[Rfam]
RNA sequence: GCGUUCGGCCGCGACUGGCGAGGGUGGACGACCACCGGGGAGCGGCCGUUGACCCGCGUGAGCGUCGACCGCCUGGGCGCCUUGC
Numbered sequence: 001g002c003g004u005u006c007g008g009c010c011g012c013g014a015c016u017g018g019c020g021a022g023g024g025u026g027g028a029c030g031a032c033c034a035c036c037g038g039g040g041a042g043c044g045g046c047c048g049u050u051g052a053c054c055c056g057c058g059u060g061a062g063c064g065u066c067g068a069c070c071g072c073c074u075g076g077g078c079g080c081c082u083u084g085c
Stems, first nucleotide, its partner, number of pairs: 006048007015039002017073004024035004062080005